[Rfam]
Nucleotides: 066
Base pairs, nucleotide, nucleotide: 008030009029010028011027012026034059035058036057037056038055039054040053041052
Number, partner (000 for none) and nucleotide at each position: 001000c002000g003000u004000c005000u006000c007000c008030u009029c010028c011027a012026c013000u014000u015000c016000c017000u018000c019000c020000u021000u022000u023000g024000g025000u026012g027011u028010g029009g030008a031000u032000u033000u034059a035058g036057c037056c038055c039054g040053g041052g042000c043000c044000c045000g046000c047000a048000a049000g050000c051000g052041c053040u054039c055038g056037g057036g058035c059034u060000u061000u062000u063000c064000u065000u066000u
Rfam assigns this 66-nucleotide RNA sequence from Thauera propionica to the family "Betaproteobacteria toxic small RNA". A search with the family's covariance model found it, with a score of 55 bits. Lineage of the source: Bacteria > Betaproteobacteria > Rhodocyclales > Zoogloeaceae > Thauera. Rfam describes the family as follows. Overexpression in amino aid rich medium attenuates growth, suggesting role in repressing amino acid intake and metabolism.